[Rfam]
Bacteroidales small SRP: a 108-nucleotide sequence from Williamwhitmania taraxaci. Rfam classes the family as a non-coding RNA gene. Its Rfam clan is "SRP clan". For this family Rfam cites "A high-resolution transcriptome map identifies small RNA regulation of metabolism in the gut microbe Bacteroides thetaiotaomicron" (Ryan et al., Nat Commun, 2020). Taxonomically the source falls in Williamwhitmania (Bacteria, Pseudomonadati, Bacteroidota, Bacteroidia). A search with the family's covariance model found it, with a score of 108 bits.
RNA sequence: UGUGCCCGGGUAAGUCUUAUACGAUCAGCUCCUGCUGAACUCCCCCAGGACCGGAAGGUAGCAAGGGUAAGUAGUUGUAGCGAUGCGAUAUAAGUAGCUUACCCACUU
Numbered sequence: 001u002g003u004g005c006c007c008g009g010g011u012a013a014g015u016c017u018u019a020u021a022c023g024a025u026c027a028g029c030u031c032c033u034g035c036u037g038a039a040c041u042c043c044c045c046c047a048g049g050a051c052c053g054g055a056a057g058g059u060a061g062c063a064a065g066g067g068u069a070a071g072u073a074g075u076u077g078u079a080g081c082g083a084u085g086c087g088a089u090a091u092a093a094g095u096a097g098c099u100u101a102c103c104c105a106c107u108u
Base pairs, nucleotide, nucleotide: 008104009103010102011101012100013099014098015097017093018092019091020090021089022087023086024084025083